[Rfam]
sodF sRNA: a 90-nucleotide RNA sequence from Streptomyces sp. H-KF8.
On this family, see Kim et al., Nucleic Acids Res 2014: "Inverse regulation of Fe- and Ni-containing SOD genes by a Fur family regulator Nur through small RNA processed from 3'UTR of the sodF mRNA".
Rfam links the family to the GO terms mRNA binding, regulation of mRNA stability and negative regulation of translation.
It scores 91 bits against the family's covariance model.
The family's RNA type in Rfam is small RNA.
RNA sequence: ACGCCCUGCCCCGUGAUCGUCUUCUCACCGUUCACCCGGCAGGCGGAAAAAAGGAAGCCCCCGCGAGGACAGGACUCGCGGGGGCUUCCG
Numbered sequence: 001a002c003g004c005c006c007u008g009c010c011c012c013g014u015g016a017u018c019g020u021c022u023u024c025u026c027a028c029c030g031u032u033c034a035c036c037c038g039g040c041a042g043g044c045g046g047a048a049a050a051a052a053g054g055a056a057g058c059c060c061c062c063g064c065g066a067g068g069a070c071a072g073g074a075c076u077c078g079c080g081g082g083g084g085c086u087u088c089c090g
Stems, first nucleotide, its partner, number of pairs: 002045002005043006013035004019029001053089015